[Rfam]
RNA sequence: AAAACAGCCUGGCAGGAGAGAUACCAUGAUCAUGAAGGUGGUUUUCCCGGGGCUGGGCUUAUCCAUUGCAUUCCAGAUGUGCUGACGCCUGUGAUUUUCCCAAAUGUGGGAAACUGGACUGCAUAAUUUGUGGUAGUGGGGGAUUAUGUUCGUGUUCUCUCCUG
Dot-bracket structure: ...........(((((.((((.(((((..........))))))))).)(((....(((.((((............)))).)))....))).(.((((.((.......)).))).).).))))...............((((((..(((....)))..)))))).
Numbered sequence: 001a002a003a004a005c006a007g008c009c010u011g012g013c014a015g016g017a018g019a020g021a022u023a024c025c026a027u028g029a030u031c032a033u034g035a036a037g038g039u040g041g042u043u044u045u046c047c048c049g050g051g052g053c054u055g056g057g058c059u060u061a062u063c064c065a066u067u068g069c070a071u072u073c074c075a076g077a078u079g080u081g082c083u084g085a086c087g088c089c090u091g092u093g094a095u096u097u098u099c100c101c102a103a104a105u106g107u108g109g110g111a112a113a114c115u116g117g118a119c120u121g122c123a124u125a126a127u128u129u130g131u132g133g134u135a136g137u138g139g140g141g142g143a144u145u146a147u148g149u150u151c152g153u154g155u156u157c158u159c160u161c162c163u164g
Stems, first nucleotide, its partner, number of pairs: 012122004016048001018046004023042005049090003056083003060079004092117001094115001095113003099109002138163006146155003